[Rfam]
RNA: TPP riboswitch aptamer (THI element)
Organism: Marinicauda algicola
RNA sequence: UGAAGUUCCAGGGGGCGUCCGCGUGCCGCGCGGGCUGAGAAGCACCCUUAAGGACCGGAUCCAGGUCAUGCUGGCGUCGGGAUGGAACGGUGAAAGCCG
Numbered sequence: 001u002g003a004a005g006u007u008c009c010a011g012g013g014g015g016c017g018u019c020c021g022c023g024u025g026c027c028g029c030g031c032g033g034g035c036u037g038a039g040a041a042g043c044a045c046c047c048u049u050a051a052g053g054a055c056c057g058g059a060u061c062c063a064g065g066u067c068a069u070g071c072u073g074g075c076g077u078c079g080g081g082a083u084g085g086a087a088c089g090g091u092g093a094a095a096g097c098c099g
Stems, first nucleotide, its partner, number of pairs: 006087005011048004016042001017035007055080004061074004